[Rfam]
The family of this 131-nucleotide RNA sequence from Cnephaeus nilssonii is "Small nucleolar RNA SNORA5".
The family's consensus secondary structure was predicted with RNAfold.
The family is grouped with related families in Rfam's "SNORA5 clan".
About the family: ACA5 is a member of the H/ACA class of snoRNA that guide the sites of modification of uridines to pseudouridines.
The family has 6 seed sequences and 2,226 matches in Rfam 15.1.
It scores 95 bits against the family's covariance model.
The source organism's lineage runs through Eukaryota, Amniota, Chiroptera, Vespertilionidae and Cnephaeus.
RNA sequence: AGAAACCUUAAUUCGGUGCCUGCCCCACCCAUGACAAGCACUGGCCCAGAAGGCUGCCACAGAAACACUGUGGCCCAUGGGCCCUGAUCCCCUCUGCUGGACCUCAGGGAUAAAUUUGACUACAAACAUCA
Numbered sequence: 001a002g003a004a005a006c007c008u009u010a011a012u013u014c015g016g017u018g019c020c021u022g023c024c025c026c027a028c029c030c031a032u033g034a035c036a037a038g039c040a041c042u043g044g045c046c047c048a049g050a051a052g053g054c055u056g057c058c059a060c061a062g063a064a065a066c067a068c069u070g071u072g073g074c075c076c077a078u079g080g081g082c083c084c085u086g087a088u089c090c091c092c093u094c095u096g097c098u099g100g101a102c103c104u105c106a107g108g109g110a111u112a113a114a115u116u117u118g119a120c121u122a123c124a125a126a127c128a129u130c131a
Stems, first nucleotide, its partner, number of pairs: 001055002014043006021036002024033001070123004075118001082109005